[Rfam]
RNA: Molybdenum/Tungsten riboswitch aptamer (Moco RNA motif)
RNA sequence: GGCAAUAAACACUACCGAGCCUUUGUGCCUACCCCCGCCGCUAUCCGCCGGGCAGGGUUCACUGGCCGCAGACAACCAAGGUUGAUCUGCCAGGGUUGCAAGAGAAAUCGACCAGCCUCCCAACGGAGCGACGACACCAAUCGUCGCUCAAGGAAAGGUAAACAAUGCUAGAAGAC
Numbered sequence: 001g002g003c004a005a006u007a008a009a010c011a012c013u014a015c016c017g018a019g020c021c022u023u024u025g026u027g028c029c030u031a032c033c034c035c036c037g038c039c040g041c042u043a044u045c046c047g048c049c050g051g052g053c054a055g056g057g058u059u060c061a062c063u064g065g066c067c068g069c070a071g072a073c074a075a076c077c078a079a080g081g082u083u084g085a086u087c088u089g090c091c092a093g094g095g096u097u098g099c100a101a102g103a104g105a106a107a108u109c110g111a112c113c114a115g116c117c118u119c120c121c122a123a124c125g126g127a128g129c130g131a132c133g134a135c136a137c138c139a140a141u142c143g144u145c146g147c148u149c150a151a152g153g154a155a156a157g158g159u160a161a162a163c164a165a166u167g168c169u170a171g172a173a174g175a176c
Stems, first nucleotide, its partner, number of pairs: 004169001006167001013160004019066003024061002027058003034052003068090005093118006102109002119153002